This 110-nucleotide sequence from Talaromyces marneffei belongs to the Rfam family "tRNA". The source organism's lineage runs through Eukaryota, Ascomycota, leotiomyceta, Talaromyces sect. Talaromyces and Talaromyces marneffei. Transfer RNA (tRNA) molecules are approximately 80 nucleotides in length.
[Rfam]
RNA sequence: GGCAAGAUGGCCGAGUGGUCUAAGGCGCAGCACUUGAAUAACCCUAAUCUUGAUCAUUAGGUUGACAUGCUGUAUCUUCGGAUGCGUGAGUUCAAAUCUCACUCUUGUCG
Numbered sequence: 001g002g003c004a005a006g007a008u009g010g011c012c013g014a015g016u017g018g019u020c021u022a023a024g025g026c027g028c029a030g031c032a033c034u035u036g037a038a039u040a041a042c043c044c045u046a047a048u049c050u051u052g053a054u055c056a057u058u059a060g061g062u063u064g065a066c067a068u069g070c071u072g073u074a075u076c077u078u079c080g081g082a083u084g085c086g087u088g089a090g091u092u093c094a095a096a097u098c099u100c101a102c103u104c105u106u107g108u109c110g
Stems, first nucleotide, its partner, number of pairs: 001109007010026003028072005086102005